BsrG: a 257-nucleotide RNA sequence from Sporolactobacillus inulinus. The match comes from Rfam's covariance-model search (61 bits). On this family, see Saito et al., Gene 2008: "Novel small RNA-encoding genes in the intergenic regions of Bacillus subtilis". The family's RNA type in Rfam is small RNA.
Nucleotides: 257
Base pairs, nucleotide, nucleotide: 001230002229003228004227005226008208014149015148016147017146018145019144020143021142023138024137026135031052034050036048037047038046061120062119063118064117065116066115067114074089075088076087099112100111101110209223210222211221212220236257237256238255239254240253241252242251243250244249
Number, partner (000 for none) and nucleotide at each position: 001230g002229c003228a004227a005226u006000a007000g008208a009000u010000g011000a012000a013000g014149c015148a016147u017146a018145u019144g020143a021142g022000c023138g024137g025000a026135u027000g028000c029000g030000g031052u032000g033000a034050c035000g036048c037047c038046c039000u040000c041000u042000g043000a044000a045000a046038g047037g048036g049000g050034g051000g052031g053000g054000a055000g056000c057000c058000u059000a060000u061120g062119a063118c064117a065116g066115u067114a068000u069000a070000c071000c072000a073000a074089u075088c076087a077000u078000u079000a080000a081000c082000a083000u084000u085000a086000a087076u088075g089074a090000u091000u092000a093000g094000u095000u096000u097000u098000g099112c100111a101110g102000u103000g104000c105000u106000a107000g108000u109000g110101c111100u112099g113000a114067u115066g116065c117064u118063g119062u120061c121000a122000a123000a124000u125000a126000a127000a128000a129000a130000g131000a132000a133000a134000u135026a136000a137024u138023c139000c140000g141000u142021c143020u144019c145018g146017u147016a148015u149014g150000c151000c152000a153000u154000u155000c156000a157000c158000g159000g160000u161000g162000g163000c164000u165000a166000a167000g168000a169000c170000g171000g172000a173000u174000u175000a176000c177000c178000c179000u180000c181000a182000a183000u184000u185000u186000g187000u188000g189000u190000a191000a192000u193000u194000u195000g196000u197000u198000c199000a200000a201000g202000c203000a204000u205000c206000g207000u208008u209223c210222c211221g212220c213000u214000c215000u216000u217000a218000u219000u220212g221211c222210g223209g224000a225000u226005a227004u228003u229002g230001c231000c232000a233000u234000c235000c236257c237256g238255u239254c240253a241252g242251u243250g244249u245000u246000c247000a248000u249244g250243c251242a252241c253240u254239g255238g256237c257236g